[Rfam]
Source information: A member of the RNA family "c-di-GMP-I-GGC riboswitch aptamer" from Clostridiales bacterium PH28_bin88, 85 nucleotides long. For this family Rfam cites "Recognition of the bacterial second messenger cyclic diguanylate by its cognate riboswitch" (Kulshina et al., Nat Struct Mol Biol, 2009).

RNA sequence: GCUGAUCAAGGCAAACCCUGUGAAAGCAGGGGGCGCAAAGCUACGGGUCUAAAGCUGAAAGGCCAUGAUCGCCGGGCUGCCAGUA
Numbered sequence: 001g002c003u004g005a006u007c008a009a010g011g012c013a014a015a016c017c018c019u020g021u022g023a024a025a026g027c028a029g030g031g032g033g034c035g036c037a038a039a040g041c042u043a044c045g046g047g048u049c050u051a052a053a054g055c056u057g058a059a060a061g062g063c064c065a066u067g068a069u070c071g072c073c074g075g076g077c078u079g080c081c082a083g084u085a
Stems, first nucleotide, its partner, number of pairs: 003082002011036002016031006034071001039078004044074003047069003